[Rfam]
Shown here is a 428-nucleotide RNA from Acetobacter pomorum, a member of the family "Bacterial RNase P class A". The family's RNA type in Rfam is ribozyme. Gene Ontology terms of the family: dimeric ribonuclease P complex, ribonuclease P activity and tRNA processing. Ribonuclease P (RNase P) is a ubiquitous endoribonuclease, found in archaea, bacteria and eukarya as well as chloroplasts and mitochondria.
RNA sequence: UCAGGUGGUUGGGCGGUCGCUGUCCUGCUCUUUAACGGGUAGGAGAGAGGAAAGUCCGGGCUCCACGGAAGAACGGUGCCGGCUAACGGCCGGCGAGGGUAACCUUAGGGAAAGUGCCACAGAAAACAGACCGCCUUCCGGGUCUGGCUUUGUAAAAUCCUUAUGGGAUUUUAUGGGACAGGCUGAAGGUAAGGGUGAAACGGUGCGGUAAGAGCGCACCGCUCCGCUGGUAACAGAGGAGGCACGGUAAACCCCACCGGGAGCAAAACCGAAUAGGAACAGCAGAAACCCUUGUGGUUUCGGGGGUUCUUCCGCCCUGCUGUUCGGGUUGGUUGCGAGAGGCAUGUUGCAAAACACGCCCUAGACGAAUGACCGUCCAGCCUCUUUACAGAGGUGGACAGAACCCGGCUUACAGACCACCUGACACU
Numbered sequence: 001u002c003a004g005g006u007g008g009u010u011g012g013g014c015g016g017u018c019g020c021u022g023u024c025c026u027g028c029u030c031u032u033u034a035a036c037g038g039g040u041a042g043g044a045g046a047g048a049g050g051a052a053a054g055u056c057c058g059g060g061c062u063c064c065a066c067g068g069a070a071g072a073a074c075g076g077u078g079c080c081g082g083c084u085a086a087c088g089g090c091c092g093g094c095g096a097g098g099g100u101a102a103c104c105u106u107a108g109g110g111a112a113a114g115u116g117c118c119a120c121a122g123a124a125a126a127c128a129g130a131c132c133g134c135c136u137u138c139c140g141g142g143u144c145u146g147g148c149u150u151u152g153u154a155a156a157a158u159c160c161u162u163a164u165g166g167g168a169u170u171u172u173a174u175g176g177g178a179c180a181g182g183c184u185g186a187a188g189g190u191a192a193g194g195g196u197g198a199a200a201c202g203g204u205g206c207g208g209u210a211a212g213a214g215c216g217c218a219c220c221g222c223u224c225c226g227c228u229g230g231u232a233a234c235a236g237a238g239g240a241g242g243c244a245c246g247g248u249a250a251a252c253c254c255c256a257c258c259g260g261g262a263g264c265a266a267a268a269c270c271g272a273a274u275a276g277g278a279a280c281a282g283c284a285g286a287a288a289c290c291c292u293u294g295u296g297g298u299u300u301c302g303g304g305g306g307u308u309c310u311u312c313c314g315c316c317c318u319g320c321u322g323u324u325c326g327g328g329u330u331g332g333u334u335g336c337g338a339g340a341g342g343c344a345u346g347u348u349g350c351a352a353a354a355c356a357c358g359c360c361c362u363a364g365a366c367g368a369a370u371g372a373c374c375g376u377c378c379a380g381c382c383u384c385u386u387u388a389c390a391g392a393g394g395u396g397g398a399c400a401g402a403a404c405c406c407g408g409c410u411u412a413c414a415g416a417c418c419a420c421c422u423g424a425c426a427c428u
Stems, first nucleotide, its partner, number of pairs: 001424010011413001012377007020047002023044008052411003056408005061263004070311002074259005079093005094108001095106004109254002114252002116248003131194002133190006140183001202220006221243001222241004227236003267334004277325006303318005341360003345356004